Rfam assigns this 211-nucleotide RNA sequence from Castanea mollissima to the family "MIR168 microRNA precursor family". Gene Ontology terms of the family: miRNA-mediated post-transcriptional gene silencing and RISC complex. A reference for the family is Reinhart et al. (2002), "MicroRNAs in plants", Genes Dev. It scores 103 bits against the family's covariance model.
RNA sequence: UUACCGGCGGUCUCUAAUUCGCUUGGUGCAGGUCGGGAACUACUUCGCUUCGCUUGUUAAAAAUUGGAAUAUCAUUUUAUCUCUUAUAUAAAAAAAAAAAAAAAUGAAAAAAAAAAUUAUAUAUAUAGAUAGGCAGGUGGCGUUUUGGGAUUGGUUGUAGGGGCGAAUUGGAUCCCGCCUUGCAUCAACUGAAUCGGAGACCGCGGUGAAG
Numbered sequence: 001u002u003a004c005c006g007g008c009g010g011u012c013u014c015u016a017a018u019u020c021g022c023u024u025g026g027u028g029c030a031g032g033u034c035g036g037g038a039a040c041u042a043c044u045u046c047g048c049u050u051c052g053c054u055u056g057u058u059a060a061a062a063a064u065u066g067g068a069a070u071a072u073c074a075u076u077u078u079a080u081c082u083c084u085u086a087u088a089u090a091a092a093a094a095a096a097a098a099a100a101a102a103a104a105u106g107a108a109a110a111a112a113a114a115a116a117u118u119a120u121a122u123a124u125a126u127a128g129a130u131a132g133g134c135a136g137g138u139g140g141c142g143u144u145u146u147g148g149g150a151u152u153g154g155u156u157g158u159a160g161g162g163g164c165g166a167a168u169u170g171g172a173u174c175c176c177g178c179c180u181u182g183c184a185u186c187a188a189c190u191g192a193a194u195c196g197g198a199g200a201c202c203g204c205g206g207u208g209a210a211g
Stems, first nucleotide, its partner, number of pairs: 013198002017194004023188010034177005040171002